[Rfam]
RNA sequence: AUACCUUCUCGGCCUUUUGGCUAAGAUCAAGUGUAGUAUCUGUUCUUAUCAGCUUAAUCUCUGAUACAGGGGCAAUGCCCCUUCGAGAUUAACUCAAUUUCUCUCGCGGGAGGCUUCACCCGGGCGCUUGCGUCCCGAAGCCUCACGUGUGUCCUCGGAGCUGCACUACUUCCUUGGACGCACACCGUCU
Numbered sequence: 001a002u003a004c005c006u007u008c009u010c011g012g013c014c015u016u017u018u019g020g021c022u023a024a025g026a027u028c029a030a031g032u033g034u035a036g037u038a039u040c041u042g043u044u045c046u047u048a049u050c051a052g053c054u055u056a057a058u059c060u061c062u063g064a065u066a067c068a069g070g071g072g073c074a075a076u077g078c079c080c081c082u083u084c085g086a087g088a089u090u091a092a093c094u095c096a097a098u099u100u101c102u103c104u105c106g107c108g109g110g111a112g113g114c115u116u117c118a119c120c121c122g123g124g125c126g127c128u129u130g131c132g133u134c135c136c137g138a139a140g141c142c143u144c145a146c147g148u149g150u151g152u153c154c155u156c157g158g159a160g161c162u163g164c165a166c167u168a169c170u171u172c173c174u175u176g177g178a179c180g181c182a183c184a185c186c187g188u189c190u
Stems, first nucleotide, its partner, number of pairs: 007026003011022004047066006068082006110144008123134004147183006154176001157173003

This 190-nucleotide sequence from Guillardia theta belongs to the Rfam family "U2 spliceosomal RNA". U2 is a small nuclear RNA (snRNA) component of the spliceosome (involved in pre-mRNA splicing). Complementary binding between U2 snRNA (in an area lying towards the 5' end but 3' to hairpin I) and the branchpoint sequence (BPS) of the intron results the bulging out of an unpaired adenosine, on the BPS, which initiates a nucleophilic attack at the intronic 5' splice site, thus starting the first of two transesterification reactions that mediate splicing. On this family, see Zwieb, Nucleic Acids Res 1997: "The uRNA database". The source organism's lineage runs through Eukaryota, Cryptophyceae, Pyrenomonadales, Guillardia and Guillardia theta.